[Rfam]
Nucleotides: 115
Base pairs, nucleotide, nucleotide: 003113005111006110007109008108009107010106017029018028019027031095032094033085034084035048036047037046038045043083044082053059065081066080067079068078069077087098088097089096
Number, partner (000 for none) and nucleotide at each position: 001000g002000a003113u004000g005111a006110u007109c008108u009107u010106c011000g012000a013000g014000g015000c016000g017029g018028g019027g020000u021000g022000u023000g024000a025000u026000u027019c028018c029017c030000c031095a032094c033085c034084g035048g036047c037046g038045g039000u040000a041000a042000a043083g044082u045038c046037c047036g048035c049000a050000a051000a052000c053059c054000g055000a056000a057000a058000g059053g060000c061000a062000c063000g064000a065081u066080a067079c068078g069077g070000u071000g072000c073000a074000a075000u076000u077069c078068c079067g080066u081065a082044a083043c084034c085033g086000a087098c088097g089096g090000u091000a092000u093000a094032g095031u096089c097088c098087g099000g100000a101000u102000g103000a104000a105000a106010g107009a108008g109007g110006a111005u112000a113003g114000a115000g
Rfam assigns this 115-nucleotide sequence from Oscillospiraceae bacterium Marseille-Q3528 to the family "FMN riboswitch aptamer (RFN element)". The family has 146 seed sequences and 6,230 matches in Rfam 15.1. Rfam links the family to the GO term FMN binding.